Notes:
Shown here is a 127-nucleotide sequence from Rattus norvegicus, a member of the family "Small nucleolar RNA SNORA44". Clan: SNORA44 clan. Rfam 15.1 lists 1,056 matches to the family in 599 species. The family's consensus secondary structure was predicted with PFOLD. ACA44 is a member of the H/ACA class of snoRNA that guide the sites of modification of uridines to pseudouridines. A reference for the family is Huttenhofer et al. (2001), "RNomics: an experimental approach that identifies 201 candidates for novel, small, non-messenger RNAs in mouse", EMBO J.
[Rfam]
RNA sequence: AAUCAGGCUUAUAAAUAUUUACUUUAAAAAAUAUUAGAAUCUCCAACUGCAUGCCAGAGUAACGGAGAGACUUUGACAGCCCAGGUUAUCACAGUGCCUGCUGUUGCCACUCAGCUCUCCUAUAUGU
Numbered sequence: 001a002a003u004c005a006g007g008c009u010u011a012u013a014a015a016u017a018u019u020u021a022c023u024u025u026a027a028a029a030a031a032u033a034u035u036a037g038a039a040u041c042u043c044c045a046a047c048u049g050c051a052u053g054c055c056a057g058a059g060u061a062a063c064g065g066a067g068a069g070a071c072u073u074u075g076a077c078a079g080c081c082c083a084g085g086u087u088a089u090c091a092c093a094g095u096g097c098c099u100g101c102u103g104u105u106g107c108c109a110c111u112c113a114g115c116u117c118u119c120c121u122a123u124a125u126g127u
Base pairs, nucleotide, nucleotide: 012036016033017032018031019030020027064120065119066118067117068116069115079107080106082100083099084098085097